[Rfam]
RNA sequence: ACCUUCUCAUGAGCUCCUCUCAAUCACACCCAUGAUUCUGUAUGGAUUCGCACGAGAAGCAGAUCCAGUGCACAGAUCAUAACAGGCUCGCCCGAUGUGCUUAUGGGUGUUGCCCAUGUCUACUGUGCGACAAGA
Dot-bracket structure: ..((((((....(((((....((((........))))......)))...))..))))))..........((((((.............((((((.........)))))).............)))))).......